[Rfam]
RNA sequence: UGGGAUAAGUUCCCAUAUGGAUGUGGCCUUCGUGGCUGAACAAAAAG
Numbered sequence: 001u002g003g004g005a006u007a008a009g010u011u012c013c014c015a016u017a018u019g020g021a022u023g024u025g026g027c028c029u030u031c032g033u034g035g036c037u038g039a040a041c042a043a044a045a046a047g
Stems, first nucleotide, its partner, number of pairs: 001015005018042002025037004

This 47-nucleotide RNA sequence from Methanobrevibacter thaueri belongs to the Rfam family "eL15-Euryarchaeota ribosomal protein leader".
The family's RNA type in Rfam is cis-regulatory leader.
The source organism's lineage runs through Archaea, Methanobacteriota, Methanobacteriales, Methanobacteriaceae and Methanobrevibacter.